[Rfam]
RNA sequence: GAGCCUCGCUAGGGGUGCCGCCGCGGCGGCUGAGACAGUCCCUUCGAACCUGAUUGAGAUCAUCCUCGCGCAGGAAAGCAGCUCGCCACGGCG
Numbered sequence: 001g002a003g004c005c006u007c008g009c010u011a012g013g014g015g016u017g018c019c020g021c022c023g024c025g026g027c028g029g030c031u032g033a034g035a036c037a038g039u040c041c042c043u044u045c046g047a048a049c050c051u052g053a054u055u056g057a058g059a060u061c062a063u064c065c066u067c068g069c070g071c072a073g074g075a076a077a078g079c080a081g082c083u084c085g086c087c088a089c090g091g092c093g
Stems, first nucleotide, its partner, number of pairs: 006081001008079003011043004016037001017030005049074004055068004
RNA: TPP riboswitch aptamer (THI element)